[Rfam]
RNA sequence: GUCCAAAAUACAGUGAUGUUAUCUUUCCAAGCACGUAUCUCAUUGCUUGGUGCGGAAAAUGAGUGUUGCUGAGUGAUUUUGGAU
Number, nucleotide and partner (000 for none) at each position: 001g084002u083003c082004c081005a080006a079007a000008a077009u076010a074011c073012a000013g000014u000015g000016a000017u000018g000019u000020u000021a000022u000023c000024u000025u000026u000027c000028c000029a000030a000031g000032c000033a000034c000035g000036u000037a000038u000039c000040u000041c000042a000043u000044u000045g000046c000047u000048u000049g000050g000051u000052g000053c000054g000055g000056a000057a000058a000059a000060u000061g000062a000063g000064u000065g000066u000067u000068g000069c000070u000071g000072a000073g011074u010075g000076a009077u008078u000079u006080u005081g004082g003083a002084u001
Shown here is an 84-nucleotide sequence from Nyctibius bracteatus, a member of the family "Small nucleolar RNA SNORD121A". Lineage of the source: Eukaryota > Chordata > Sarcopterygii > Tetrapoda > Nyctibius. Its family is annotated with nucleolus and RNA processing in the Gene Ontology. Pairs were carried over by alignment from the consensus structure, which was predicted with WAR. On this family, see Yang et al., Nucleic Acids Res 2006: "snoSeeker: an advanced computational package for screening of guide and orphan snoRNA genes in the human genome".